[Rfam]
Rfam assigns this 112-nucleotide RNA sequence from Corymbia citriodora to the family "mir-399 microRNA precursor family". Rfam's curators write: mir-399 was identified in both Arabidopsis thaliana and Oryza sativa computationally and was later experimentally verified. mir-399 is thought to target mRNAs coding for a phosphatase transporter. The mature sequence is excised from the 3' arm of the hairpin. On this family, see Jones-Rhoades and Bartel, Mol Cell 2004: "Computational Identification of Plant MicroRNAs and Their Targets, Including a Stress-Induced miRNA". Gene Ontology terms of the family: RISC complex and miRNA-mediated post-transcriptional gene silencing. The base pairs follow the family's consensus structure, which was predicted with PFOLD.
RNA sequence: UAGCGAAUAACAGCGCAAUUCUCCUUUGGCAGAAGAGAGCUGCAUCGACAAGCAUGCAAAUGUCAAGGUUGCUCUUGCUACUGCCAAAGGAGAAUUGCCCUGCCAUUCGCUU
Numbered sequence: 001u002a003g004c005g006a007a008u009a010a011c012a013g014c015g016c017a018a019u020u021c022u023c024c025u026u027u028g029g030c031a032g033a034a035g036a037g038a039g040c041u042g043c044a045u046c047g048a049c050a051a052g053c054a055u056g057c058a059a060a061u062g063u064c065a066a067g068g069u070u071g072c073u074c075u076u077g078c079u080a081c082u083g084c085c086a087a088a089g090g091a092g093a094a095u096u097g098c099c100c101u102g103c104c105a106u107u108c109g110c111u112u
Stems, first nucleotide, its partner, number of pairs: 005108004011102003015098005021092004027086006034079002